Shown here is a 166-nucleotide sequence from Leptotrichia hofstadii, a member of the family "Ribosomal protein L10 leader".
A reference for the family is Zengel and Lindahl (1994), "Diverse mechanisms for regulating ribosomal protein synthesis in Escherichia coli", Prog Nucleic Acid Res Mol Biol.
The family's consensus secondary structure was predicted with CMfinder.
The family's RNA type in Rfam is cis-regulatory leader.
RNA sequence: AAAUCAUAUAUAAUAUAACCAAAGACAGUAGGUAGAACGAAAGUUCUUUAAACCCUACCGAGGUAAGUAUUAUUAUAAAUAGAUAUUAAAAUUAAAUAAUAGAUAUUUUUAUAGUAUGAUACCUCUGGGCUUAUUGUUUUUGUUUCAGAGGUUUUUAUUAUAAGGA
Number, nucleotide and partner (000 for none) at each position: 001a000002a000003a000004u000005c000006a000007u000008a000009u000010a000011u000012a000013a000014u000015a000016u000017a000018a000019c000020c000021a000022a000023a000024g000025a000026c000027a000028g058029u057030a056031g055032g054033u000034a000035g046036a045037a044038c000039g000040a000041a000042a000043g000044u037045u036046c035047u000048u000049u000050a000051a000052a000053c000054c032055c031056u030057a029058c028059c000060g000061a000062g000063g000064u000065a000066a000067g000068u000069a000070u000071u000072a000073u000074u000075a000076u000077a000078a000079a000080u000081a000082g000083a000084u000085a000086u000087u000088a000089a000090a000091a000092u000093u000094a000095a000096a000097u000098a000099a000100u000101a000102g000103a000104u000105a000106u000107u000108u000109u000110u000111a000112u000113a000114g000115u000116a000117u000118g000119a000120u000121a000122c151123c150124u149125c148126u147127g146128g145129g144130c000131u142132u000133a000134u000135u000136g000137u000138u000139u000140u000141u000142g131143u000144u129145u128146c127147a126148g125149a124150g123151g122152u000153u000154u000155u000156u000157a000158u000159u000160a000161u000162a000163a000164g000165g000166a000